[Rfam]
RNA sequence: AUUAAUUAUUAUUUAUCUUUAGUUUAUAUGCACAAUAAAUUAUUGAUAUUCUAAUAGUUAAUAAUCCACGUGGUAAGGGGUCACAGUUAGGUUCACUGUGAUGUGCAACCCUUUAGAGCAACUAAUCCUAAGCAAGUAGGGAGAAAUACUCUUAACCAUAAGUAGGGUUAACAUGGUGCUUGACAGUCUGAUACUAACUGAACAAUAAGUAUCA
Numbered sequence: 001a002u003u004a005a006u007u008a009u010u011a012u013u014u015a016u017c018u019u020u021a022g023u024u025u026a027u028a029u030g031c032a033c034a035a036u037a038a039a040u041u042a043u044u045g046a047u048a049u050u051c052u053a054a055u056a057g058u059u060a061a062u063a064a065u066c067c068a069c070g071u072g073g074u075a076a077g078g079g080g081u082c083a084c085a086g087u088u089a090g091g092u093u094c095a096c097u098g099u100g101a102u103g104u105g106c107a108a109c110c111c112u113u114u115a116g117a118g119c120a121a122c123u124a125a126u127c128c129u130a131a132g133c134a135a136g137u138a139g140g141g142a143g144a145a146a147u148a149c150u151c152u153u154a155a156c157c158a159u160a161a162g163u164a165g166g167g168u169u170a171a172c173a174u175g176g177u178g179c180u181u182g183a184c185a186g187u188c189u190g191a192u193a194c195u196a197a198c199u200g201a202a203c204a205a206u207a208a209g210u211a212u213c214a
Base pairs, nucleotide, nucleotide: 001062002061003060004059005058006057007056008055009054010053011052022040023039024038025037026036076112077111078110079109081101082100083099084098085097086096126142127141128140129139133182134181135180136179137178155177156176157175158174159173189214190213191212192211193210194209195208

The record is a 214-nucleotide sequence from Horekuvirus hominis, which matches "RAGATH-7 RNA" in Rfam. The organism belongs to Horekuvirus hominis, within Viruses. A search with the family's covariance model found it, with a score of 169 bits. The literature on the family includes a 2015 paper in Nat Chem Biol by Weinberg et al., "New classes of self-cleaving ribozymes revealed by comparative genomics analysis".